The family of this 203-nucleotide sequence is "FuFi-1 RNA". The family's consensus secondary structure is taken from published work.
[Rfam]
RNA sequence: AUCAUCAGCUAAAGGGCAAACCUUUUAAUAGCUUUUUUAGGCUAUCAUGCAGAACUAAAACUGCAUAAGUGAUGAUGUGUACAUAGAAGCAUUAGGCGCUAUAUAAUGUAGUAAUUUAGUUUUUUUGACUUCUUUACUUGCAUACACAAAGAGUAAAUAAAUUUAGACAAACGUCAGUAAGGAUAGCGCACUUAUUGGCGUUU
Number, nucleotide and partner (000 for none) at each position: 001a076002u075003c074004a073005u072006c071007a070008g000009c000010u000011a000012a000013a000014g000015g000016g000017c000018a000019a000020a000021c000022c000023u000024u000025u000026u000027a000028a000029u000030a000031g000032c000033u000034u000035u000036u000037u000038u000039a000040g000041g000042c000043u000044a000045u000046c000047a000048u065049g064050c063051a062052g061053a000054a000055c166056u165057a164058a163059a162060a000061c052062u051063g050064c049065a048066u000067a000068a000069g000070u007071g006072a005073u004074g003075a002076u001077g147078u146079g145080u144081a143082c000083a000084u000085a000086g000087a000088a000089g109090c108091a107092u106093u105094a104095g000096g000097c188098g187099c186100u185101a184102u183103a000104u094105a093106a092107u091108g090109u089110a138111g137112u136113a135114a134115u000116u000117u000118a000119g000120u000121u000122u000123u000124u000125u000126u000127g000128a000129c000130u000131u000132c000133u000134u114135u113136a112137c111138u110139u000140g000141c000142a000143u081144a080145c079146a078147c077148a000149a000150a000151g000152a000153g000154u000155a000156a000157a000158u000159a000160a000161a000162u059163u058164u057165a056166g055167a000168c000169a000170a000171a201172c200173g199174u198175c197176a196177g195178u194179a193180a192181g191182g189183a102184u101185a100186g099187c098188g097189c182190a000191c181192u180193u179194a178195u177196u176197g175198g174199c173200g172201u171202u000203u000